[Rfam]
RNA sequence: CUGAACCCUGCGGGAGAGAUCGGCAGCGCGUUUGCGUAGCCGGCGCCGAAGGAGCAAUCCACCCCGGAAACUCUCAGGCAGAAGGACCGCAGGGGAAGG
Numbered sequence: 001c002u003g004a005a006c007c008c009u010g011c012g013g014g015a016g017a018g019a020u021c022g023g024c025a026g027c028g029c030g031u032u033u034g035c036g037u038a039g040c041c042g043g044c045g046c047c048g049a050a051g052g053a054g055c056a057a058u059c060c061a062c063c064c065c066g067g068a069a070a071c072u073c074u075c076a077g078g079c080a081g082a083a084g085g086a087c088c089g090c091a092g093g094g095g096a097a098g099g
Base pairs, nucleotide, nucleotide: 006094007093008092009091010090011089012088013087020043021042022041023040045079046078047077048075049074052073053072054071058068059067